[Rfam]
RNA sequence: GUUCUUCUAGUCUAACUGGUAGGACAUCUGCCCGGACAGCAGAAGGUAUGGGUUCGACCCCCAUGAAGGUCA
Numbered sequence: 001g002u003u004c005u006u007c008u009a010g011u012c013u014a015a016c017u018g019g020u021a022g023g024a025c026a027u028c029u030g031c032c033c034g035g036a037c038a039g040c041a042g043a044a045g046g047u048a049u050g051g052g053u054u055c056g057a058c059c060c061c062c063a064u065g066a067a068g069g070u071c072a
Stems, first nucleotide, its partner, number of pairs: 001071001003069005010025004027043005048064005

The record is a 72-nucleotide RNA from Rotaria socialis, which matches "tRNA" in Rfam. The family's RNA type in Rfam is transfer RNA. Lineage of the source: Eukaryota > Eumetazoa > Gnathifera > Philodinida > Rotaria. Pairs were carried over by alignment from the consensus structure, which is taken from published work.